[Rfam]
RNA sequence: AUUAUAAAUUUAAAAAGCAUUUGUAUAUGUUUGCAAUAUGGGCAAACGUUUCUACGACAAACCGUAAAUUUGUCUCUAUAAAUGUUAAUUAACAUUCU
Numbered sequence: 001a002u003u004a005u006a007a008a009u010u011u012a013a014a015a016a017g018c019a020u021u022u023g024u025a026u027a028u029g030u031u032u033g034c035a036a037u038a039u040g041g042g043c044a045a046a047c048g049u050u051u052c053u054a055c056g057a058c059a060a061a062c063c064g065u066a067a068a069u070u071u072g073u074c075u076c077u078a079u080a081a082a083u084g085u086u087a088a089u090u091a092a093c094a095u096u097c098u
Stems, first nucleotide, its partner, number of pairs: 018084008029047006056074006
RNA: Purine riboswitch aptamer